RNA sequence: ACAAGUAUUUCAAAGGGGUUAUUAAGGAUAACUAGCAAAUUUAUAAAAAAGGAGGUAAUAAUAACCAAAAGCAACAUGUUAAUAAAAAUUAACAAUUAAAAAUGUUGCGAUCCUAAGGGAAACCUUUAUUAUUAAAACUUCCCGAAGUAAAACAUUUCAGUAGGGAAAGGAAAGGAAAUCAACCGAGACUCCGAAAGUAAUGGUGAGUGAAAUCGGAUUAGCCUAAUAAUAUCUUAUACAUUGAAUGCUUUAUUAAAUAAGAACUAGCGCUUAUUAUUUUUUUGGCGAAAACUAAAAAAAUAAUUAGGGCGACAAAAUUCAAUAAUUAAUAAUUAUCAACCAAAGAAGGUCUCAGUCCUGUAUAUGUAUAAAAUUAUUAAACAAAUAAGUACGAUGAGAGUAAACUUGUCGGAAUAUAGGGGUACCAUCCUCUAAGGCUAAGUAUUAUAAAUUUAGCGAUAGUGAAAAGUACUGAUAAAGGAAAAGUUGAAAUAAAACGUCAUAGACGUUGUGAAAUAAAUUUGAAUUAGUAACUCUAUAAG
Number, nucleotide and partner (000 for none) at each position: 001a000002c000003a000004a000005g000006u000007a000008u000009u000010u000011c000012a000013a000014a000015g537016g536017g535018g534019u533020u532021a531022u530023u529024a528025a000026g000027g000028a000029u000030a522031a487032c486033u000034a000035g457036c456037a454038a453039a452040u451041u450042u449043a448044u000045a445046a000047a000048a000049a000050a114051g113052g112053a111054g066055g065056u064057a000058a000059u000060a000061a000062u000063a000064a056065c055066c054067a000068a000069a000070a000071g000072c107073a106074a105075c104076a103077u102078g000079u000080u000081a097082a096083u095084a000085a000086a000087a000088a000089u000090u000091a000092a000093c000094a000095a083096u082097u081098a000099a000100a000101a000102a077103u076104g075105u074106u073107g072108c000109g000110a000111u053112c052113c051114u050115a000116a125117g124118g123119g000120a000121a000122a000123c118124c117125u116126u000127u000128a000129u000130u000131a000132u000133u000134a000135a000136a000137a000138c169139u167140u166141c165142c164143c163144g000145a000146a000147g000148u000149a156150a155151a000152a000153c000154a000155u150156u149157u000158c000159a000160g000161u000162a000163g143164g142165g141166a140167a139168a000169g138170g000171a000172a000173a000174g000175g000176a000177a000178a000179u186180c185181a000182a000183c000184c000185g180186a179187g000188a000189c442190u217191c216192c215193g214194a213195a000196a000197g000198u000199a000200a208201u207202g000203g000204u000205g000206a000207g201208u200209g000210a000211a000212a000213u194214c193215g192216g191217a190218u000219u000220a439221g438222c437223c436224u000225a000226a000227u000228a242229a241230u240231a000232u238233c000234u000235u000236a000237u000238a232239c000240a230241u229242u228243g000244a000245a000246u000247g000248c000249u000250u385251u384252a000253u380254u379255a378256a377257a000258u000259a000260a000261g000262a000263a000264c000265u000266a000267g000268c000269g000270c000271u000272u000273a000274u000275u000276a000277u000278u000279u000280u000281u000282u000283u000284g000285g000286c000287g000288a000289a000290a000291a000292c000293u000294a000295a000296a000297a000298a000299a000300a000301u000302a000303a000304u372305u371306a000307g000308g000309g000310c000311g000312a000313c000314a000315a369316a000317a365318u364319u000320c000321a000322a000323u338324a000325a336326u335327u000328a000329a000330u000331a000332a000333u000334u000335a326336u325337c000338a323339a000340c000341c345342a000343a000344a000345g341346a000347a359348g358349g357350u000351c000352u000353c000354a000355g000356u000357c349358c348359u347360g000361u000362a000363u000364a318365u317366g000367u000368a000369u315370a000371a305372a304373a000374u000375u000376a000377u256378u255379a254380a253381a000382c000383a000384a251385a250386u000387a000388a000389g000390u000391a000392c411393g410394a409395u408396g407397a406398g405399a000400g000401u000402a000403a000404a000405c398406u397407u396408g395409u394410c393411g392412g000413a000414a000415u000416a000417u000418a433419g432420g431421g430422g429423u000424a000425c000426c000427a000428u000429c422430c421431u420432c419433u418434a000435a000436g223437g222438c221439u220440a000441a000442g189443u000444a000445u045446u000447a000448u043449a042450a041451a040452u039453u038454u037455a000456g036457c035458g000459a000460u000461a000462g000463u000464g000465a000466a000467a000468a000469g000470u000471a000472c481473u480474g000475a000476u000477a000478a000479a000480g473481g472482a000483a000484a000485a000486g032487u031488u000489g000490a000491a000492a000493u000494a000495a000496a000497a509498c508499g507500u506501c000502a000503u000504a000505g000506a500507c499508g498509u497510u000511g000512u000513g000514a000515a000516a000517u000518a000519a000520a000521u000522u030523u000524g000525a000526a000527u000528u024529a023530g022531u021532a020533a019534c018535u017536c016537u015538a000539u000540a000541a000542g000

The family of this 542-nucleotide part of an RNA is "Bacterial large subunit ribosomal RNA". A search with the family's covariance model found it, with a score of 1199 bits.